[Rfam]
Rfam assigns this 81-nucleotide RNA sequence from Mycoavidus cysteinexigens to the family "Burkholderia RNA 7 (anti-hemB)".
RNA sequence: UCCCCGCUUCUCCUCCCUGAGCGGGAGCCUGUAGUGUAAAAGCCAGGCUUUUCACCGCCGCUUCGACGGCGGAUUUUUUUU
Numbered sequence: 001u002c003c004c005c006g007c008u009u010c011u012c013c014u015c016c017c018u019g020a021g022c023g024g025g026a027g028c029c030u031g032u033a034g035u036g037u038a039a040a041a042g043c044c045a046g047g048c049u050u051u052u053c054a055c056c057g058c059c060g061c062u063u064c065g066a067c068g069g070c071g072g073a074u075u076u077u078u079u080u081u
Stems, first nucleotide, its partner, number of pairs: 003025006027048005055072006
Background: Rfam 15.1 lists 479 matches to the family in 458 species. The source organism's lineage runs through Bacteria, Pseudomonadota, Burkholderiales, Burkholderiaceae and Mycoavidus. It is annotated as a small RNA. On this family, see Weinberg et al., Nucleic Acids Res 2007: "Identification of 22 candidate structured RNAs in bacteria using the CMfinder comparative genomics pipeline". Rfam describes the family as follows. This RNA motif was identified by computational search in b-proteobacteria Burkholderia. Its family is annotated with bacterial biofilm matrix and protein binding in the Gene Ontology. The base pairs follow the family's consensus structure, which is taken from published work.